[Rfam]
A member of the RNA family "SAM/SAH riboswitch aptamer" from Paracoccus sulfuroxidans, 52 nucleotides long. A search with the family's covariance model found it, with a score of 55 bits. A reference for the family is Weickhmann et al. (2019), "The structure of the SAM/SAH-binding riboswitch", Nucleic Acids Res.
RNA sequence: GAUCUGCCACAACGGCUUCCUGGCGUGGCAGGGUUUUCUAUGUAACGGAGCA
Numbered sequence: 001g002a003u004c005u006g007c008c009a010c011a012a013c014g015g016c017u018u019c020c021u022g023g024c025g026u027g028g029c030a031g032g033g034u035u036u037u038c039u040a041u042g043u044a045a046c047g048g049a050g051c052a
Stems, first nucleotide, its partner, number of pairs: 004032002006029005013022002015051003019048002